Source information:
The family of this 182-nucleotide RNA from Gimesia aquarii is "6S / SsrS RNA". Rfam classes the family as a non-coding RNA gene. For this family Rfam cites "6S RNA regulates E. coli RNA polymerase activity" (Wassarman and Storz, Cell, 2000). The base pairs follow the family's consensus structure, which is taken from published work.
Nucleotides: 182
Base pairs, nucleotide, nucleotide: 003179004178005177006176007175008174009173010172011171012170014168015167017166018165019164032149033148034147035145036144038142039141055126056125057124059122060121061120068115070113071112073110080103081102085099086098087097088096089095
Number, partner (000 for none) and nucleotide at each position: 001000a002000c003179a004178c005177c006176u007175c008174u009173g010172u011171c012170a013000u014168g015167u016000u017166g018165a019164u020000u021000c022000a023000a024000a025000a026000u027000c028000g029000u030000g031000a032149g033148u034147u035145g036144a037000c038142c039141c040000u041000a042000c043000a044000a045000a046000c047000a048000c049000u050000a051000a052000a053000c054000u055126g056125g057124g058000a059122a060121c061120c062000c063000c064000c065000g066000a067000a068115a069000u070113u071112c072000g073110g074000c075000u076000g077000c078000g079000u080103g081102u082000a083000a084000a085099c086098c087097c088096g089095g090000u091000a092000u093000a094000c095089c096088c097087g098086g099085g100000a101000a102081a103080c104000a105000c106000a107000a108000c109000c110073c111000g112071g113070a114000u115068u116000a117000u118000c119000a120061g121060g122059u123000u124057c125056c126055c127000a128000c129000u130000u131000u132000g133000c134000a135000a136000u137000c138000a139000c140000g141039g142038g143000u144036u145035c146000u147034a148033a149032u150000a151000u152000a153000c154000c155000c156000g157000c158000g159000u160000c161000u162000g163000a164019a165018u166017c167015a168014c169000u170012u171011g172010g173009c174008g175007g176006a177005g178004g179003u180000u181000u182000u